RNA sequence: UACACGUCGCAUGACUGGCGGAAGUGGAGUGACCACAGGGGAGUGCGAUGGAGAUUUCUUUGCCGACCGCCUGGGCACCUUAU
Dot-bracket structure: ....((((((((..(([[[[[..((((.....))))..))..))))))))..........((((..]]]]]..))))......

This 83-nucleotide RNA sequence from an Alicyclobacillaceae bacterium belongs to the Rfam family "ZMP/ZTP riboswitch aptamer (pfl RNA motif)". Gene Ontology terms of the family: one-carbon metabolic process and regulation of purine nucleotide biosynthetic process.